[Rfam]
Shown here is a 78-nucleotide sequence from Clostridium sp. DSM 8431, a member of the family "Glycine riboswitch aptamer".
The match comes from Rfam's covariance-model search (57 bits).
Taxonomically the source falls in Clostridium (Bacteria, Clostridia, Eubacteriales, Clostridiaceae).
The literature on the family includes a 2004 paper in Science by Mandal et al., "A glycine-dependent riboswitch that uses cooperative binding to control gene expression".
Pairs were carried over by alignment from the consensus structure.

RNA sequence: UUGAAGACAAUGGGAGAGAAACAUUAAAUUGUUCACCGAAGAAGUAAAUCUUUCAGGUAAAUGAACCGUUGUUGGACA
Numbered sequence: 001u002u003g004a005a006g007a008c009a010a011u012g013g014g015a016g017a018g019a020a021a022c023a024u025u026a027a028a029u030u031g032u033u034c035a036c037c038g039a040a041g042a043a044g045u046a047a048a049u050c051u052u053u054c055a056g057g058u059a060a061a062u063g064a065a066c067c068g069u070u071g072u073u074g075g076a077c078a
Base pairs, nucleotide, nucleotide: 006073007072008071009070010069011068012067013066020033021032022031023030035058036057037056038054039053042052043051044050